[Rfam]
RNA sequence: GCCCAAAGUCGCACGUGCCUGUGGGUGUCCCCCGAGCUCCGGAAUGGCGGAGAAAUCGGGACGGUACCUGGGAGCUAACACGCCCAGUUGCUAUAUCGGCCAACCGACAUAGCAAGGACAUCUUGAAGCAACGACGGUGCGGGCCUUU
Numbered sequence: 001g002c003c004c005a006a007a008g009u010c011g012c013a014c015g016u017g018c019c020u021g022u023g024g025g026u027g028u029c030c031c032c033c034g035a036g037c038u039c040c041g042g043a044a045u046g047g048c049g050g051a052g053a054a055a056u057c058g059g060g061a062c063g064g065u066a067c068c069u070g071g072g073a074g075c076u077a078a079c080a081c082g083c084c085c086a087g088u089u090g091c092u093a094u095a096u097c098g099g100c101c102a103a104c105c106g107a108c109a110u111a112g113c114a115a116g117g118a119c120a121u122c123u124u125g126a127a128g129c130a131a132c133g134a135c136g137g138u139g140c141g142g143g144c145c146u147u148u
Stems, first nucleotide, its partner, number of pairs: 001144004008135004016130003023123008031060005037052005068087005088115004094109001096107004
Shown here is a 148-nucleotide sequence from Limoniibacter endophyticus, a member of the family "Alphaproteobacterial sRNA ar45". Pairs were carried over by alignment from the consensus structure. By type it is a small RNA. Taxonomically the source falls in Limoniibacter (Bacteria, Pseudomonadati, Pseudomonadota, Bartonellaceae).